[Rfam]
RNA sequence: AUAAUAUGUUUUCACCCACCGAAGACAGCAGGUGCGCGCGGAAGCCGCUGGCAGCCGUGUGCGUAAAGGAAUGGAAGCAUUCCGCCCGCCGAGGAUGAGUAAUGAUCUGGACAAGAUCCGCCGGAAAUCCCCGCUCCCGGAUGAUACUGGAGAGGGCGCGGCGGUGAAGCAUGGAUUUUUCAGCUCUCUGUCUUCGCGGCAGAGAGCUUUUAUUACUCUCCG
Numbered sequence: 001a002u003a004a005u006a007u008g009u010u011u012u013c014a015c016c017c018a019c020c021g022a023a024g025a026c027a028g029c030a031g032g033u034g035c036g037c038g039c040g041g042a043a044g045c046c047g048c049u050g051g052c053a054g055c056c057g058u059g060u061g062c063g064u065a066a067a068g069g070a071a072u073g074g075a076a077g078c079a080u081u082c083c084g085c086c087c088g089c090c091g092a093g094g095a096u097g098a099g100u101a102a103u104g105a106u107c108u109g110g111a112c113a114a115g116a117u118c119c120g121c122c123g124g125a126a127a128u129c130c131c132c133g134c135u136c137c138c139g140g141a142u143g144a145u146a147c148u149g150g151a152g153a154g155g156g157c158g159c160g161g162c163g164g165u166g167a168a169g170c171a172u173g174g175a176u177u178u179u180u181c182a183g184c185u186c187u188c189u190g191u192c193u194u195c196g197c198g199g200c201a202g203a204g205a206g207c208u209u210u211u212a213u214u215a216c217u218c219u220c221c222g
Stems, first nucleotide, its partner, number of pairs: 028089002031086003034062008183207010
RNA: Ribosomal protein L10 leader
Organism: Sarcina sp. DSM 11001